[Rfam]
RNA sequence: CACGCAUCUGAUUACUGACGGAUUAAUGUGGAGUACCACAGGGAAAUCAGAAUGCGAAAAAAGCCGACCGUCUGGGCAACAUUU
Numbered sequence: 001c002a003c004g005c006a007u008c009u010g011a012u013u014a015c016u017g018a019c020g021g022a023u024u025a026a027u028g029u030g031g032a033g034u035a036c037c038a039c040a041g042g043g044a045a046a047u048c049a050g051a052a053u054g055c056g057a058a059a060a061a062a063g064c065c066g067a068c069c070g071u072c073u074g075g076g077c078a079a080c081a082u083u084u
Stems, first nucleotide, its partner, number of pairs: 003056004007051006015043002017072005028039004063077003